[Rfam]
RNA sequence: AGCAGCACGGGGAGAGCGACCCUGGGGCUGGCAGACGAGUUUCCCCGUUGAGAGCGAUCAAUGGGGGAACCUCUCUGUGUCUAAAAGCUGUAGAAAUUCAGUGCAUCAGGCGCAAAUCAGUGUGACGUGAUGAACGUGUUUAUGCGGAUACCGCAUCGCUCGGGGAGGACUCGCUUCUCCUCGCGGUUCCGUGGCUCCA
Numbered sequence: 001a002g003c004a005g006c007a008c009g010g011g012g013a014g015a016g017c018g019a020c021c022c023u024g025g026g027g028c029u030g031g032c033a034g035a036c037g038a039g040u041u042u043c044c045c046c047g048u049u050g051a052g053a054g055c056g057a058u059c060a061a062u063g064g065g066g067g068a069a070c071c072u073c074u075c076u077g078u079g080u081c082u083a084a085a086a087g088c089u090g091u092a093g094a095a096a097u098u099c100a101g102u103g104c105a106u107c108a109g110g111c112g113c114a115a116a117u118c119a120g121u122g123u124g125a126c127g128u129g130a131u132g133a134a135c136g137u138g139u140u141u142a143u144g145c146g147g148a149u150a151c152c153g154c155a156u157c158g159c160u161c162g163g164g165g166a167g168g169a170c171u172c173g174c175u176u177c178u179c180c181u182c183g184c185g186g187u188u189c190c191g192u193g194g195c196u197c198c199a
Stems, first nucleotide, its partner, number of pairs: 003030004008024005031078005037072001041068010144192005150187005162182008
Rfam assigns this 199-nucleotide sequence to the family "Cyano-2 RNA". Pairs were carried over by alignment from the consensus structure, which is taken from published work. By type it is a small RNA.